About this RNA
A member of the RNA family "Phenylalanine leader peptide" from Budvicia aquatica, 137 nucleotides long. A search with the family's covariance model found it, with a score of 102 bits. Taxonomically the source falls in Budvicia (Bacteria, Gammaproteobacteria, Enterobacterales, Budviciaceae). Rfam links the family to the GO term cellular amino acid metabolic process. The literature on the family includes a 1978 paper in Proc Natl Acad Sci U S A by Zurawski et al., "Nucleotide sequence of the leader region of the phenylalanine operon of Escherichia coli".

RNA sequence: AAUGAAACAUAUACCGUUUUUCUUCGCUUUCUUUUUUACCGUCCCCUGACUGGGAGGCGAUUCGUCCGUAACUCUGUAAAGAGUAGAAAGAAAGCGAAGACGAACAUUAAAGCCUCCCAAAGGGGGGCUUUUUUAUU
Numbered sequence: 001a002a003u004g005a006a007a008c009a010u011a012u013a014c015c016g017u018u019u020u021u022c023u024u025c026g027c028u029u030u031c032u033u034u035u036u037u038a039c040c041g042u043c044c045c046c047u048g049a050c051u052g053g054g055a056g057g058c059g060a061u062u063c064g065u066c067c068g069u070a071a072c073u074c075u076g077u078a079a080a081g082a083g084u085a086g087a088a089a090g091a092a093a094g095c096g097a098a099g100a101c102g103a104a105c106a107u108u109a110a111a112g113c114c115u116c117c118c119a120a121a122g123g124g125g126g127g128c129u130u131u132u133u134u135a136u137u
Stems, first nucleotide, its partner, number of pairs: 016105004021100014042055004056066004109131010
Rfam classes the family as a cis-regulatory leader.